[Rfam]
Rfam assigns this 65-nucleotide RNA from Flavobacterium fluvii to the family "DUF805 RNA". The family has 46 seed sequences and 281 matches in Rfam 15.1. Taxonomically the source falls in Flavobacterium (Bacteria, Pseudomonadati, Bacteroidota, Flavobacteriales). The family's RNA type in Rfam is cis-regulatory element. The family's consensus secondary structure is taken from published work.
RNA sequence: GCACAAUGGAGUUCAGAAACCAAAAAAACGAGGAGUGUCCGAAAAUCCACAAGAGUAGGUGUUAU
Number, nucleotide and partner (000 for none) at each position: 001g000002c000003a000004c000005a000006a000007u022008g021009g020010a000011g000012u000013u000014c000015a000016g000017a000018a000019a000020c009021c008022a007023a000024a000025a000026a000027a000028a000029c000030g000031a000032g048033g047034a046035g000036u000037g000038u000039c059040c058041g000042a000043a000044a000045a000046u034047c033048c032049a000050c000051a000052a000053g000054a000055g000056u000057a000058g040059g039060u000061g000062u000063u000064a000065u000